[Rfam]
RNA sequence: CUCUUAUCGAGAGUAGGUGGAGGGACAGGCCCUUCGAAGCCCAGCAACCAUCCCCGGCGGGGAAAGGUGCCAACCUGGCAAAGCAAUUGUUGCUUUGCAAGAUAAGAG
Numbered sequence: 001c002u003c004u005u006a007u008c009g010a011g012a013g014u015a016g017g018u019g020g021a022g023g024g025a026c027a028g029g030c031c032c033u034u035c036g037a038a039g040c041c042c043a044g045c046a047a048c049c050a051u052c053c054c055c056g057g058c059g060g061g062g063a064a065a066g067g068u069g070c071c072a073a074c075c076u077g078g079c080a081a082a083g084c085a086a087u088u089g090u091u092g093c094u095u096u097g098c099a100a101g102a103u104a105a106g107a108g
Stems, first nucleotide, its partner, number of pairs: 001108008013042001016041003022032003026078001028076002044070003048067002051062003079097006
This 108-nucleotide RNA from Salicibibacter halophilus belongs to the Rfam family "SAM riboswitch aptamer (S box leader)". Rfam describes the family as follows. The SAM riboswitch is found upstream of a number of genes which code for proteins involved in methionine or cysteine biosynthesis in Gram-positive bacteria. The SAM riboswitch acts at the level of transcription termination control. The base pairs follow the family's consensus structure, which is taken from published work.